[Rfam]
RNA sequence: UUUGCACUGGCAAGUCCUACACGACCAGCUCCUAUAGAAUCCUCCAGGGUGGGAACGCAGCAAAGGUAUGUAGUCGUAGCGGUGCGAUGUAGGUCGCUUGCCAUCUU
Numbered sequence: 001u002u003u004g005c006a007c008u009g010g011c012a013a014g015u016c017c018u019a020c021a022c023g024a025c026c027a028g029c030u031c032c033u034a035u036a037g038a039a040u041c042c043u044c045c046a047g048g049g050u051g052g053g054a055a056c057g058c059a060g061c062a063a064a065g066g067u068a069u070g071u072a073g074u075c076g077u078a079g080c081g082g083u084g085c086g087a088u089g090u091a092g093g094u095c096g097c098u099u100g101c102c103a104u105c106u107u
Stems, first nucleotide, its partner, number of pairs: 008103008017092005022086002024083002

A member of the RNA family "Bacteroidales small SRP" from Flavobacterium sp. NKUCC04_CG, 107 nucleotides long. Rfam classes the family as a non-coding RNA gene. Its family is annotated with signal recognition particle, plasma membrane targeting and SRP-dependent cotranslational protein targeting to membrane, signal sequence recognition in the Gene Ontology. Its Rfam clan is "SRP clan". NCBI's taxonomy places the organism under Bacteria, Pseudomonadati, Flavobacteriia, Flavobacteriales, Flavobacterium.